Rfam assigns this 76-nucleotide sequence from Ameiurus melas to the family "mir-7563 microRNA precursor family". Gene Ontology terms of the family: RISC complex and miRNA-mediated post-transcriptional gene silencing. It scores 83 bits against the family's covariance model.

Nucleotides: 076
Stems, first nucleotide, its partner, number of pairs: 001074005007068009017058011030045002033042003
Number, partner (000 for none) and nucleotide at each position: 001074a002073c003072c004071g005070c006000a007068u008067a009066c010065u011064u012063a013062u014061c015060u016000a017058c018057u019056a020055u021054a022053u023052g024051g025050u026049a027048g028000u029000c030045g031044a032000a033042a034041u035040a036000c037000g038000u039000g040035u041034a042033u043000u044031u045030c046000u047000c048027c049026u050025a051024c052023u053022a054021u055020a056019u057018a058017g059000u060015a061014g062013g063012u064011a065010a066009g067008u068007a069000a070005g071004c072003g073002g074001u075000u076000u